Shown here is a 107-nucleotide RNA from Piliocolobus tephrosceles, a member of the family "Y RNA". Rfam describes the family as follows. Y RNAs are components of the Ro ribonucleoprotein particle (Ro RNP), in association with Ro60 and La proteins. The Y RNAs and Ro60 and La proteins are well conserved, but the function of the Ro RNP is not known. NCBI's taxonomy places the organism under Eukaryota, Gnathostomata, Haplorrhini, Cercopithecidae, Piliocolobus. The family's RNA type in Rfam is non-coding RNA gene. A search with the family's covariance model found it, with a score of 56 bits.
RNA sequence: GGCUGUCAGAAGUUAGUGAGUUACCACAAUUGAUUGUUCCUAGUUACAGAUUUAACUCUUUGUUCUACUCUUUCCCCCUUCUCACUACUGCACUUGACUAGUCUUUA
Numbered sequence: 001g002g003c004u005g006u007c008a009g010a011a012g013u014u015a016g017u018g019a020g021u022u023a024c025c026a027c028a029a030u031u032g033a034u035u036g037u038u039c040c041u042a043g044u045u046a047c048a049g050a051u052u053u054a055a056c057u058c059u060u061u062g063u064u065c066u067a068c069u070c071u072u073u074c075c076c077c078c079u080u081c082u083c084a085c086u087a088c089u090g091c092a093c094u095u096g097a098c099u100a101g102u103c104u105u106u107a
Stems, first nucleotide, its partner, number of pairs: 001103005006097002009095002014090001015086006028069001030067001032065002